[Rfam]
RNA sequence: CGGCCCGCCGCGGGCCGGCAUACGCGGCUCCGGCCAUGGGCCGGAUGGGAAAGG
Numbered sequence: 001c002g003g004c005c006c007g008c009c010g011c012g013g014g015c016c017g018g019c020a021u022a023c024g025c026g027g028c029u030c031c032g033g034c035c036a037u038g039g040g041c042c043g044g045a046u047g048g049g050a051a052a053g054g
Base pairs, nucleotide, nucleotide: 007028008027009026010025011024012023029045030044031043032042033041034040

A member of the RNA family "M23 RNA" from Oscillibacter sp. CAG:241, 54 nucleotides long. Rfam's curators put it in the seed alignment.